RNA sequence: AGUUGUAACCUAUGUAAGUCACUCUGGAUAAGAGCAUCUGCUAAAUGACAGUAA
Numbered sequence: 001a002g003u004u005g006u007a008a009c010c011u012a013u014g015u016a017a018g019u020c021a022c023u024c025u026g027g028a029u030a031a032g033a034g035c036a037u038c039u040g041c042u043a044a045a046u047g048a049c050a051g052u053a054a
Base pairs, nucleotide, nucleotide: 013043014041015040016039022034023033024032025031